Notes:
Shown here is a 76-nucleotide RNA from Klebsiella pneumoniae, a member of the family "Repression of heat shock gene expression (ROSE) element".

RNA sequence: CCGGGUUACCGCGGCCUGUCCACGAUGGAAGGUCAUUUGAUUCUCGCUGAUUUUCAGGAGCUAUUUACUAUGCGUA
Numbered sequence: 001c002c003g004g005g006u007u008a009c010c011g012c013g014g015c016c017u018g019u020c021c022a023c024g025a026u027g028g029a030a031g032g033u034c035a036u037u038u039g040a041u042u043c044u045c046g047c048u049g050a051u052u053u054u055c056a057g058g059a060g061c062u063a064u065u066u067a068c069u070a071u072g073c074g075u076a
Stems, first nucleotide, its partner, number of pairs: 013034005019029003039066002043060003047057003
The base pairs follow the family's consensus structure, which is taken from published work.
Rfam classes the family as an RNA thermoregulator.
This family represents a 5' UTR cis-regulatory element found in heat shock mRNAs and is known as the ROSE (repression of heat shock gene expression) element. The ROSE element is a negative regulator of heat shock gene expression. The secondary structure is thought to be regulated by temperature.
Rfam links the family to the GO terms response to temperature stimulus and regulation of translation.
On this family, see Narberhaus et al., FEMS Microbiol Rev 2006: "RNA thermometers".